[Rfam]
RNA: small nucleolar RNA snoR127
RNA sequence: CUGGAAUGAUGAAAGUUAGCCAAAUCGUAUACUGAUGUGCUCCUCCUUGUGUUAUUUUUGUCUUGUGCACUUGGUGAAAAAUCUCUUCUUUCCCAAGCACAUGAUAAUAUAACUGGAGUUGAAGUUUGCAUCAGUAUGUGAUGAUAAAAACGGGGAUUGGUAACUUACUGACCAGA
Numbered sequence: 001c002u003g004g005a006a007u008g009a010u011g012a013a014a015g016u017u018a019g020c021c022a023a024a025u026c027g028u029a030u031a032c033u034g035a036u037g038u039g040c041u042c043c044u045c046c047u048u049g050u051g052u053u054a055u056u057u058u059u060g061u062c063u064u065g066u067g068c069a070c071u072u073g074g075u076g077a078a079a080a081a082u083c084u085c086u087u088c089u090u091u092c093c094c095a096a097g098c099a100c101a102u103g104a105u106a107a108u109a110u111a112a113c114u115g116g117a118g119u120u121g122a123a124g125u126u127u128g129c130a131u132c133a134g135u136a137u138g139u140g141a142u143g144a145u146a147a148a149a150a151c152g153g154g155g156a157u158u159g160g161u162a163a164c165u166u167a168c169u170g171a172c173c174a175g176a
Stems, first nucleotide, its partner, number of pairs: 001175004